[Rfam]
RNA sequence: CUACUAAAAGUUGGUUUUGAGGGGAAGAUUUUGAGUCAUCUUUGUCAACUCAAGCUAUGUGGGAGAAUGAAGACCACACUCCACAUGAGCUAUACUGUUUAUAUGCAGUUCGUAUUUACUAUUUUGUGGCCUAGAAG
Numbered sequence: 001c002u003a004c005u006a007a008a009a010g011u012u013g014g015u016u017u018u019g020a021g022g023g024g025a026a027g028a029u030u031u032u033g034a035g036u037c038a039u040c041u042u043u044g045u046c047a048a049c050u051c052a053a054g055c056u057a058u059g060u061g062g063g064a065g066a067a068u069g070a071a072g073a074c075c076a077c078a079c080u081c082c083a084c085a086u087g088a089g090c091u092a093u094a095c096u097g098u099u100u101a102u103a104u105g106c107a108g109u110u111c112g113u114a115u116u117u118a119c120u121a122u123u124u125u126g127u128g129g130c131c132u133a134g135a136a137g
Stems, first nucleotide, its partner, number of pairs: 004062003008058001012057006021050002023046002026043001027040003071132002074129005085117001086112006093105002
Shown here is a 137-nucleotide RNA sequence from Diceros bicornis, a member of the family "Small nucleolar RNA SNORA4".
Lineage of the source: Eukaryota > Deuterostomia > Gnathostomata > Perissodactyla > Diceros bicornis.
Rfam links the family to the GO terms nucleolus and RNA processing.
ACA4 is a member of the H/ACA class of snoRNA that guide the sites of modification of uridines to pseudouridines.
The base pairs follow the family's consensus structure, which was predicted with PFOLD.